[Rfam]
RNA sequence: GGCGAUAAACCGUGGCGUGUCAUAGACACAGCGGACCCGGGGGCAGUACCCGGCGACUCCACCACCGCCCCUUUGCAAAGAGGGACGAUGACGGGGUCGAACUAGGAUCGACGUGUGUUCAACGACGCUAUGUUUCGCUCGGAAUGGGACCACCGCAACGGCCCAUACACAAGUGCCAACGAUAACGAAGCACUCGCAAUUGCCGCAUAA
Numbered sequence: 001g002g003c004g005a006u007a008a009a010c011c012g013u014g015g016c017g018u019g020u021c022a023u024a025g026a027c028a029c030a031g032c033g034g035a036c037c038c039g040g041g042g043g044c045a046g047u048a049c050c051c052g053g054c055g056a057c058u059c060c061a062c063c064a065c066c067g068c069c070c071c072u073u074u075g076c077a078a079a080g081a082g083g084g085a086c087g088a089u090g091a092c093g094g095g096g097u098c099g100a101a102c103u104a105g106g107a108u109c110g111a112c113g114u115g116u117g118u119u120c121a122a123c124g125a126c127g128c129u130a131u132g133u134u135u136c137g138c139u140c141g142g143a144a145u146g147g148g149a150c151c152a153c154c155g156c157a158a159c160g161g162c163c164c165a166u167a168c169a170c171a172a173g174u175g176c177c178a179a180c181g182a183u184a185a186c187g188a189a190g191c192a193c194u195c196g197c198a199a200u201u202g203c204c205g206c207a208u209a210a
Base pairs, nucleotide, nucleotide: 001139002138003137004136005135015128016127017126018125027117028116029115031114032113033112037053038052039051040050041049054099055098056097057096058095059094060093140155141154142153

Shown here is a 210-nucleotide RNA from Sphingomonas ginsenosidivorax, a member of the family "permuted transfer-messenger RNA".
The family's RNA type in Rfam is non-coding RNA gene.
About the family: Bacterial tmRNA, also known as 10Sa RNA or SsrA, is named for its dual tRNA and mRNA-like properties.